[Rfam]
RNA sequence: ACUUUCUUAGUAUUAACCAGUACACGUGACUUCCAAUCACAAAGUCUUAGUUAGAAUCUAAGAGAAAGUA
Numbered sequence: 001a002c003u004u005u006c007u008u009a010g011u012a013u014u015a016a017c018c019a020g021u022a023c024a025c026g027u028g029a030c031u032u033c034c035a036a037u038c039a040c041a042a043a044g045u046c047u048u049a050g051u052u053a054g055a056a057u058c059u060a061a062g063a064g065a066a067a068g069u070a
Stems, first nucleotide, its partner, number of pairs: 001069007010023004026040004046062005
The record is a 70-nucleotide RNA, which matches "tRNA" in Rfam. Rfam links the family to the GO term triplet codon-amino acid adaptor activity. Rfam classes the family as a transfer RNA.